[Rfam]
RNA sequence: GGGGUUGUACUGGUUUCGACGGGGGUUUUGAAGUUGUGGAAGCCAUUCGUGGACUAGGACCACGUAAAAACUUAGAAUUAAAUAUAAACGCAGACGAAAAUUUAGCGUACGCUGCCUAGCGGCAGCUGUCGACCUUAAGCCACUCGCUGCUUAAGGACUCGGCAUCAAACUUGCGAGGCACUUUGUCUUCAAAGCUUUGAGAAGAUAAAAGAAACAUGAAGCUACCAAAGCUAAUAGCCUGUUAGCCGGCGAUUAGUAGAGGGAACAGCAAACUUCGGGUUUGCAUAAAAGACUGACUGUAAUGGGAGAUGCUACAAUGAAUGGGCUUUCGGACAGGGGUUCGAUUCCCCUCAGCUCCAUCU
Number, nucleotide and partner (000 for none) at each position: 001g358002g357003g356004g355005u354006u353007g352008u000009a000010c000011u000012g000013g000014u000015u000016u000017c000018g000019a000020c331021g330022g329023g328024g327025g326026u325027u324028u323029u000030g000031a000032a000033g318034u317035u316036g315037u314038g313039g312040a000041a310042g000043c305044c304045a303046u302047u301048c064049g063050u062051g061052g060053a000054c075055u074056a073057g072058g071059a000060c052061c051062a050063c049064g048065u000066a000067a000068a000069a000070a000071c058072u057073u056074a055075g054076a000077a000078u000079u000080a000081a000082a000083u000084a000085u000086a000087a000088a000089c000090g000091c000092a000093g000094a000095c000096g000097a000098a000099a000100a000101u000102u000103u000104a000105g000106c000107g126108u125109a000110c000111g123112c122113u121114g120115c119116c000117u000118a000119g115120c114121g113122g112123c111124a000125g108126c107127u164128g163129u162130c161131g160132a159133c156134c155135u154136u153137a152138a151139g150140c149141c000142a000143c178144u177145c000146g000147c175148u000149g140150c139151u138152u137153a136154a135155g134156g133157a000158c000159u132160c131161g130162g129163c128164a127165u000166c000167a000168a000169a000170c000171u000172u000173g000174c000175g147176a000177g144178g143179c000180a000181c000182u209183u208184u207185g206186u205187c204188u203189u202190c201191a000192a000193a223194g222195c221196u220197u219198u218199g000200a000201g190202a189203a188204g187205a186206u185207a184208a183209a182210a000211g000212a000213a000214a000215c000216a000217u000218g198219a197220a196221g195222c194223u193224a000225c262226c261227a000228a000229a000230g257231c256232u255233a254234a253235u000236a000237g250238c249239c248240u000241g297242u296243u295244a294245g293246c000247c291248g239249g238250c237251g000252a000253u234254u233255a232256g231257u230258a000259g000260a000261g226262g225263g000264a000265a000266c000267a000268g000269c000270a000271a000272a000273c000274u000275u000276c000277g000278g000279g000280u000281u000282u000283g000284c000285a000286u000287a000288a000289a000290a000291g247292a000293c245294u244295g243296a242297c241298u000299g000300u000301a047302a046303u045304g044305g043306g000307a000308g000309a000310u041311g000312c039313u038314a037315c036316a035317a034318u033319g000320a000321a000322u000323g028324g027325g026326c025327u024328u023329u022330c021331g020332g000333a000334c000335a351336g350337g349338g348339g347340u000341u000342c000343g000344a000345u000346u000347c339348c338349c337350c336351u335352c007353a006354g005355c004356u003357c002358c001359a000360u000361c000362u000
RNA: transfer-messenger RNA